[Rfam]
Nucleotides: 119
Stems, first nucleotide, its partner, number of pairs: 004116007017029003031099002033089002035048004043087002051065003069085005091102003
Number, partner (000 for none) and nucleotide at each position: 001000a002000u003000a004116a005115u006114c007113c008112u009111u010110c011000a012000g013000g014000g015000c016000a017029g018028g019027g020000u021000g022000a023000a024000a025000u026000u027019c028018c029017c030000g031099a032098c033089c034088g035048g036047c037046g038045g039000u040000a041000u042000a043087g044086c045038c046037c047036g048035c049000g050000a051065g052064c053063u054000g055000c056000u057000u058000a059000a060000a061000g062000c063053a064052g065051u066000u067000g068000a069085u070084c071083u072082g073081g074000u075000g076000a077000g078000a079000u080000u081073c082072c083071a084070g085069a086044g087043c088034c089033g090000a091102c092101a093100g094000u095000a096000u097000a098032g099031u100093c101092u102091g103000g104000a105000u106000g107000g108000g109000a110010g111009a112008a113007g114006g115005a116004u117000a118000g119000a
FMN riboswitch aptamer (RFN element): a 119-nucleotide RNA sequence from Caldisalinibacter kiritimatiensis.
NCBI's taxonomy places the organism under Bacteria, Bacillota, Tissierellia, Tissierellales, Caldisalinibacter.
The RFN element is a highly conserved domain that is found frequently in the 5'-untranslated regions of prokaryotic mRNAs that encode for flavin mononucleotide (FMN) biosynthesis and transport proteins.
The match comes from Rfam's covariance-model search (127 bits).